[Rfam]
RNA: Small nucleolar RNA SNORD19
Organism: Gulo gulo
RNA sequence: GAGGUAUGAGGAAAACAUGUGACCAGUCUUACUUUCACUGAAGACUGAUAAGAUCCAACUCUGACCUCAAUAAAGCC
Numbered sequence: 001g002a003g004g005u006a007u008g009a010g011g012a013a014a015a016c017a018u019g020u021g022a023c024c025a026g027u028c029u030u031a032c033u034u035u036c037a038c039u040g041a042a043g044a045c046u047g048a049u050a051a052g053a054u055c056c057a058a059c060u061c062u063g064a065c066c067u068c069a070a071u072a073a074a075g076c077c
Base pairs, nucleotide, nucleotide: 001068002067003066004065